The family of this 241-nucleotide RNA sequence from Paramecium sonneborni is "ACEA small nucleolar RNA U3". A search with the family's covariance model found it, with a score of 99 bits. Rfam's curators write: Small nucleolar RNAs (snoRNAs) are involved in the processing and modification of rRNA in the nucleolus. There are two main classes of snoRNAs: the box C/D class, and the box H/ACA class. U3 snoRNA is a member of the box C/D class. Indeed, the box C/D element is a subset of the six short sequence elements found in all U3 snoRNAs, namely boxes A, A', B, C, C', and D. The U3 snoRNA secondary structure is characterised by a small 5' domain (with boxes A and A'), and a larger 3' domain (with boxes B, C, C', and D), the two domains being linked by a single-stranded hinge. Boxes B and C form the B/C motif, which appears to be exclusive to U3 snoRNAs, and boxes C' and D form the C'/D motif. The latter is functionally similar to the C/D motifs found in other snoRNAs. The 5' domain and the hinge region act as a pre-rRNA-binding domain. The 3' domain has conserved protein-binding sites. Both the box B/C and box C'/D motifs are sufficient for nuclear retention of U3 snoRNA. The box C'/D motif is also necessary for nucleolar localisation, stability and hyper-methylation of U3 snoRNA. Both box B/C and C'/D motifs are involved in specific protein interactions and are necessary for the rRNA processing functions of U3 snoRNA. The literature on the family includes a 1997 paper in Nucleic Acids Res by Zwieb, "The uRNA database". Rfam links the family to the GO terms RNA processing and nucleolus.
RNA sequence: AAGACUGUACUCGUACAGGAUCAUGUCUAUAGUAGUUACUUACACUUUGCUUCAGCAAAUGUAGGCAACCAACCAAGCUAGAAUGAUUCAGCAUGCACUCUUGUCUAUAAUUAGGAAUAUGAAUCCAUUCUAUAUCAUGGAAUGCGAUUCGCGAUGCCCAUCCAUAUUUGUUGUUCAUUAGUAUUCUUUAUGGCUAUUAAUGUCAACAAAUAUGUGAAGACUUGAGUGUGUCUGACUAGCU
Numbered sequence: 001a002a003g004a005c006u007g008u009a010c011u012c013g014u015a016c017a018g019g020a021u022c023a024u025g026u027c028u029a030u031a032g033u034a035g036u037u038a039c040u041u042a043c044a045c046u047u048u049g050c051u052u053c054a055g056c057a058a059a060u061g062u063a064g065g066c067a068a069c070c071a072a073c074c075a076a077g078c079u080a081g082a083a084u085g086a087u088u089c090a091g092c093a094u095g096c097a098c099u100c101u102u103g104u105c106u107a108u109a110a111u112u113a114g115g116a117a118u119a120u121g122a123a124u125c126c127a128u129u130c131u132a133u134a135u136c137a138u139g140g141a142a143u144g145c146g147a148u149u150c151g152c153g154a155u156g157c158c159c160a161u162c163c164a165u166a167u168u169u170g171u172u173g174u175u176c177a178u179u180a181g182u183a184u185u186c187u188u189u190a191u192g193g194c195u196a197u198u199a200a201u202g203u204c205a206a207c208a209a210a211u212a213u214g215u216g217a218a219g220a221c222u223u224g225a226g227u228g229u230g231u232c233u234g235a236c237u238a239g240c241u
Stems, first nucleotide, its partner, number of pairs: 001041003006035001008034004017028003046067001048065001053061001077240005096228005103221004112160001114158001121150003126144001165212004170207004
Dot-bracket structure: (((..(.((((.....(((......)))..)))))...)))....(.(....(.......)...).).........(((((..............(((((..((((.....(.(......(((..(.................)...))).......).)....((((.((((..............................)))).)))).....))))..))))).......))))).